[Rfam]
The record is a 73-nucleotide RNA sequence from Allosaccharopolyspora coralli, which matches "tRNA" in Rfam.
Taxonomically the source falls in Allosaccharopolyspora (Bacteria, Bacillati, Actinomycetota, Pseudonocardiaceae).
The base pairs follow the family's consensus structure, which is taken from published work.

RNA sequence: GUGGGUGUAGCUCAGUAGGUAGAGCACCUGGUUGUGGUCCAGGAAGUCGCGGGUUCGAAUCCCGUCACUCACC
Numbered sequence: 001g002u003g004g005g006u007g008u009a010g011c012u013c014a015g016u017a018g019g020u021a022g023a024g025c026a027c028c029u030g031g032u033u034g035u036g037g038u039c040c041a042g043g044a045a046g047u048c049g050c051g052g053g054u055u056c057g058a059a060u061c062c063c064g065u066c067a068c069u070c071a072c073c
Stems, first nucleotide, its partner, number of pairs: 001072007010025004027043005049065005